[Rfam]
RNA sequence: CUCUGGAGAGUGCCUGAUUUAUUUUGGGCCACCCAAGAAGCAAGCAGUUCUAUUUGUGAUGAAUGCGAUUACAAUAGGAGCUGUGAAACUUUCUGGUGAAUGGACAGGG
Numbered sequence: 001c002u003c004u005g006g007a008g009a010g011u012g013c014c015u016g017a018u019u020u021a022u023u024u025u026g027g028g029c030c031a032c033c034c035a036a037g038a039a040g041c042a043a044g045c046a047g048u049u050c051u052a053u054u055u056g057u058g059a060u061g062a063a064u065g066c067g068a069u070u071a072c073a074a075u076a077g078g079a080g081c082u083g084u085g086a087a088a089c090u091u092u093c094u095g096g097u098g099a100a101u102g103g104a105c106a107g108g109g
Stems, first nucleotide, its partner, number of pairs: 001109005012029004031097003035092001038091003044084008
RNA: Glycine riboswitch aptamer
Organism: Pontibacillus yanchengensis